[Rfam]
RNA sequence: UUGCAUGUGGAAAUGCUUUCUCCUCAUUCCUUUUGGAAGAAGGAAUAUAUCCAUAGCAUGCUAUAUUAAAAGGAGUUCUCUGGGUUGCCAACUUUACGGUAGAGGUUUAGUAGUAGUAUAUUUCUCCUACAUAA
Numbered sequence: 001u002u003g004c005a006u007g008u009g010g011a012a013a014u015g016c017u018u019u020c021u022c023c024u025c026a027u028u029c030c031u032u033u034u035g036g037a038a039g040a041a042g043g044a045a046u047a048u049a050u051c052c053a054u055a056g057c058a059u060g061c062u063a064u065a066u067u068a069a070a071a072g073g074a075g076u077u078c079u080c081u082g083g084g085u086u087g088c089c090a091a092c093u094u095u096a097c098g099g100u101a102g103a104g105g106u107u108u109a110g111u112a113g114u115a116g117u118a119u120a121u122u123u124c125u126c127c128u129a130c131a132u133a134a
Base pairs, nucleotide, nucleotide: 003061004060005059006058007057008056016043017042018041019040020039021038023036072127073126074125075124084114085113088110090107091106092105093104094103095102
Small nucleolar RNA U109: a 134-nucleotide RNA from Jaculus jaculus. By type it is an H/ACA-box small nucleolar RNA. NCBI's taxonomy places the organism under Eukaryota, Chordata, Vertebrata, Dipodinae, Jaculus. The family's consensus secondary structure was predicted with WAR.